Rfam assigns this 45-nucleotide sequence from Exilibacterium tricleocarpae to the family "Guanidine-II riboswitch aptamer (mini-ykkC)". The family has 72 seed sequences and 1,589 matches in Rfam 15.1. Pairs were carried over by alignment from the consensus structure, which is taken from published work.
RNA sequence: CGCGCAGGACGACCUGCACGGCACCUUUUCACCCGGGACGACCCG
Numbered sequence: 001c002g003c004g005c006a007g008g009a010c011g012a013c014c015u016g017c018a019c020g021g022c023a024c025c026u027u028u029u030c031a032c033c034c035g036g037g038a039c040g041a042c043c044c045g
Stems, first nucleotide, its partner, number of pairs: 001020002004017005034045004